The record is a 107-nucleotide RNA sequence from Dialister invisus, which matches "Glycine riboswitch aptamer" in Rfam.
A search with the family's covariance model found it, with a score of 52 bits.
Rfam describes the family as follows. This family represents the bacterial glycine riboswitch. Glycine riboswitches usually consist of two metabolite-binding aptamers domains with similar structures in tandem. The aptamers cooperatively bind glycine to regulate the expression of downstream genes. In Bacillus subtilis, this riboswitch is found upstream of the gcvT operon which controls glycine degradation.
The source organism's lineage runs through Bacteria, Bacillati, Negativicutes, Dialister and Dialister invisus.

[Rfam]
RNA sequence: GGACAAACCUCUGGAGAGUGUCGUAUAUGACCGCCGAAGGUGCAGGGGCGCGGGGAAGAGUAGUCCUCCCGUUCUAAUCUCUCAGGCAAAAGGACAGGGUCGGUGCA
Numbered sequence: 001g002g003a004c005a006a007a008c009c010u011c012u013g014g015a016g017a018g019u020g021u022c023g024u025a026u027a028u029g030a031c032c033g034c035c036g037a038a039g040g041u042g043c044a045g046g047g048g049c050g051c052g053g054g055g056a057a058g059a060g061u062a063g064u065c066c067u068c069c070c071g072u073u074c075u076a077a078u079c080u081c082u083c084a085g086g087c088a089a090a091a092g093g094a095c096a097g098g099g100u101c102g103g104u105g106c107a
Stems, first nucleotide, its partner, number of pairs: 009099005020031004033087003036083002040081001042079001046074005